Overview: This 159-nucleotide RNA from Paenirhizobium daejeonense belongs to the Rfam family "Rhizobiales sRNA Atu_C7". For this family Rfam cites "Deep sequencing uncovers numerous small RNAs on all four replicons of the plant pathogen Agrobacterium tumefaciens" (Wilms et al., RNA Biol, 2012).
[Rfam]
RNA sequence: UGAAAUACAAGUGUCAUGUCAUUCACAGUUCAUCACAUUUGUAAGCGGGUCCCCGAGUUCUCCUGGCGCAUCAUGGUGCCGCAGGUGUUUCCUCCCUCGCCUGUCAAGGCGAUGCGCCCACUUGCCUCGCUCUUCGCUGGCCGACGAGCGAGGCUUUUU
Number, nucleotide and partner (000 for none) at each position: 001u000002g000003a000004a000005a000006u000007a000008c000009a000010a000011g000012u000013g000014u000015c000016a000017u000018g000019u000020c000021a000022u000023u000024c000025a000026c000027a000028g000029u000030u000031c000032a000033u000034c000035a000036c000037a000038u000039u000040u000041g000042u000043a000044a000045g000046c000047g000048g000049g000050u000051c000052c000053c000054c000055g000056a000057g000058u000059u000060c000061u000062c000063c000064u000065g118066g117067c116068g115069c114070a113071u112072c111073a000074u000075g000076g000077u000078g000079c000080c000081g104082c103083a102084g101085g100086u099087g098088u000089u000090u000091c000092c000093u000094c000095c000096c000097u000098c087099g086100c085101c084102u083103g082104u081105c000106a000107a000108g000109g000110c000111g072112a071113u070114g069115c068116g067117c066118c065119c000120a000121c000122u000123u000124g154125c153126c152127u151128c150129g149130c148131u147132c146133u000134u144135c143136g000137c000138u000139g000140g000141c000142c000143g135144a134145c000146g132147a131148g130149c129150g128151a127152g126153g125154c124155u000156u000157u000158u000159u000